Streptomyces RNA 2736: a 59-nucleotide sequence from Streptomyces mobaraensis. Rfam's curators write: Identified by deep sequencing of transcriptome at the end of exponential growth phase. Appears smaller on northern blot than sequencing transcript. This indicates processing step. Streptomyces specific. Pairs were carried over by alignment from the consensus structure. A search with the family's covariance model found it, with a score of 49 bits. The source organism's lineage runs through Bacteria, Actinomycetota, Kitasatosporales, Streptomycetaceae and Streptomyces. By type it is a small RNA.
RNA sequence: CUCCCGGGCGGAUCCCGUGGGGGGAAUCCGCUUCGGGACGGAAAGCGCCCCGCUCCGAC
Numbered sequence: 001c002u003c004c005c006g007g008g009c010g011g012a013u014c015c016c017g018u019g020g021g022g023g024g025a026a027u028c029c030g031c032u033u034c035g036g037g038a039c040g041g042a043a044a045g046c047g048c049c050c051c052g053c054u055c056c057g058a059c
Base pairs, nucleotide, nucleotide: 003037004036005035006034007033009030010029011028012027013026014024015023016022040049041048